[Rfam]
This 141-nucleotide RNA from Paenalicyclobacillus ferrooxydans belongs to the Rfam family "c-di-AMP riboswitch aptamer (ydaO/yuaA leader)". The source organism's lineage runs through Bacteria, Bacillota, Bacilli, Alicyclobacillaceae and Paenalicyclobacillus.
Nucleotides: 141
Stems, first nucleotide, its partner, number of pairs: 012126003019036006039121005048066001067107003075083002086101004
Number, partner (000 for none) and nucleotide at each position: 001000u002000c003000a004000a005000c006000c007000a008000u009000a010000a011000a012126g013125c014124c015000g016000a017000a018000u019036c020035g021034u022033c023032a024031a025000u026000g027000a028000g029000a030000c031024u032023u033022g034021a035020u036019g037000u038000a039121c040120g041119g042118g043117g044000g045000a046000u047000c048066u049000u050000u051000c052000g053000u054000c055000c056000a057000a058000u059000c060000g061000g062000a063000c064000u065000u066048g067107g068106g069105g070000a071000g072000a073000g074000g075083c076082g077000a078000a079000a080000u081000g082076u083075g084000c085000c086101g087100g088099g089098u090000u091000a092000a093000c094000u095000c096000g097000a098089a099088c100087c101086c102000g103000a104000u105069c106068c107067c108000g109000a110000c111000a112000g113000c114000u115000a116000a117043c118042c119041u120040c121039g122000g123000a124014g125013g126012c127000a128000a129000u130000a131000c132000g133000a134000g135000a136000g137000g138000a139000u140000g141000a